Shown here is a 130-nucleotide sequence from Molossus molossus, a member of the family "Small nucleolar RNA SNORA24".

RNA sequence: CUCCACGUGACGUUGGGACCUGCGGCUGAGGCAGUCUGUCUUCCGGGCCAUGGAAGAGCAUUUCCCUGUUUAUUGGCAAAGCUGUCAUUAUUCAAUUGGUAUCAGGUUCUGACUUGCACAAGUAACAUUC
Numbered sequence: 001c002u003c004c005a006c007g008u009g010a011c012g013u014u015g016g017g018a019c020c021u022g023c024g025g026c027u028g029a030g031g032c033a034g035u036c037u038g039u040c041u042u043c044c045g046g047g048c049c050a051u052g053g054a055a056g057a058g059c060a061u062u063u064c065c066c067u068g069u070u071u072a073u074u075g076g077c078a079a080a081g082c083u084g085u086c087a088u089u090a091u092u093c094a095a096u097u098g099g100u101a102u103c104a105g106g107u108u109c110u111g112a113c114u115u116g117c118a119c120a121a122g123u124a125a126c127a128u129u130c
Base pairs, nucleotide, nucleotide: 002054003053004052005051007049015040016039018037020034021033022032023030067127068126069125070124073121074120075119076117077116078115079114082105083104084103087100088099089098090097

The family's RNA type in Rfam is H/ACA-box small nucleolar RNA.